[Rfam]
RNA sequence: GAGCCAGGAGGUCAACAUCCGACAGCGCGUGGCGCCCUCGGGUGGUUUUUG
Numbered sequence: 001g002a003g004c005c006a007g008g009a010g011g012u013c014a015a016c017a018u019c020c021g022a023c024a025g026c027g028c029g030u031g032g033c034g035c036c037c038u039c040g041g042g043u044g045g046u047u048u049u050u051g
Base pairs, nucleotide, nucleotide: 016044017043018042019041020040021039022038025035026034027033028032
Dot-bracket structure: ...............(((((((..((((...))))..))))))).......